[Rfam]
Nucleotides: 067
Stems, first nucleotide, its partner, number of pairs: 002066003015052010030040003
Number, partner (000 for none) and nucleotide at each position: 001000c002066u003065u004064a005000c006000a007000u008000u009000a010000a011000u012000g013000a014000c015052g016051u017050u018049u019048a020047a021046a022045g023044c024043u025000c026000a027000a028000a029000u030040g031039g032038u033000u034000u035000c036000a037000a038032a039031c040030c041000a042000u043024g044023g045022c046021u047020u048019u049018a050017g051016a052015c053000u054000g055000a056000g057000c058000a059000u060000g061000c062000c063000a064004u065003a066002a067000c
The family of this 67-nucleotide RNA from Strongylocentrotus purpuratus is "Selenocysteine insertion sequence 1". Rfam links the family to the GO term selenocysteine incorporation. The incorporation of selenocysteine into a protein sequence is directed by an in-frame UGA codon (usually a stop codon) within the coding region of the mRNA. Selenoprotein mRNAs contain a conserved secondary structure in the 3' UTR that is required for the distinction of UGA stop from UGA selenocysteine. The selenocysteine insertion sequence (SECIS) is around 60 nt in length and adopts a hairpin structure which is sufficiently well-defined and conserved to act as a computational screen for selenoprotein genes. It scores 36 bits against the family's covariance model.